Rfam assigns this 69-nucleotide sequence to the family "tRNA". About the family: Transfer RNA (tRNA) molecules are approximately 80 nucleotides in length. It is one of the family's seed sequences. For this family Rfam cites "The tertiary structure of tRNA and the development of the genetic code" (Hou, Trends Biochem Sci, 1993). The base pairs follow the family's consensus structure, which is taken from published work.
RNA sequence: AGUAAGGUCAGCUAACUAAGCUAUCGGGCCCAUACCCCGAAAAUGAUGGUUUAACCCCUUCCCCUACUA
Numbered sequence: 001a002g003u004a005a006g007g008u009c010a011g012c013u014a015a016c017u018a019a020g021c022u023a024u025c026g027g028g029c030c031c032a033u034a035c036c037c038c039g040a041a042a043a044u045g046a047u048g049g050u051u052u053a054a055c056c057c058c059u060u061c062c063c064c065u066a067c068u069a
Stems, first nucleotide, its partner, number of pairs: 001068004006063002010022004024040005045061002048058002